[Rfam]
RNA sequence: AUGCGGGCCGUGUCAAUCGGACCCGAGGGUGCCGAAGAACGCAGGGAUUUUUCCGAUUUCUCCCUGUGGCCAACGAAACGGCAGUCGAGCUUCUUACCCCUCCGGCCC
Numbered sequence: 001a002u003g004c005g006g007g008c009c010g011u012g013u014c015a016a017u018c019g020g021a022c023c024c025g026a027g028g029g030u031g032c033c034g035a036a037g038a039a040c041g042c043a044g045g046g047a048u049u050u051u052u053c054c055g056a057u058u059u060c061u062c063c064c065u066g067u068g069g070c071c072a073a074c075g076a077a078a079c080g081g082c083a084g085u086c087g088a089g090c091u092u093c094u095u096a097c098c099c100c101u102c103c104g105g106c107c108c
Stems, first nucleotide, its partner, number of pairs: 006107004012022003025102005034093004040068007069082003

Source information:
Rhizobiales sRNA Atu_At1: a 108-nucleotide RNA sequence from Rhizobium sp. Root1212. The family's RNA type in Rfam is small RNA. Pairs were carried over by alignment from the consensus structure, which was predicted with CMfinder. The match comes from Rfam's covariance-model search (111 bits). A reference for the family is Wilms et al. (2012), "Deep sequencing uncovers numerous small RNAs on all four replicons of the plant pathogen Agrobacterium tumefaciens", RNA Biol. Taxonomically the source falls in Rhizobium (Bacteria, Pseudomonadota, Alphaproteobacteria, Rhizobiaceae).